[Rfam]
RNA: FMN riboswitch aptamer (RFN element)
RNA sequence: UUCUAUCUUCGGGGCAGGGUGUAAUUCCCGACCGACGGUAAUCAACGUUCAAACGUUGUAAGUCCGUGAACUGCUUUCGUCAAGCGGUUGACCUGGUGCAAAUCCGGGACCGACAGUUAAAGUCUGGAUGGGAGAAGAUAAAG
Dot-bracket structure: ...(((((((......(((.......))).[[((((((.......................[[))))..(((.............)))...(((((.......)))))]])).(((.....]]))).......)))))))...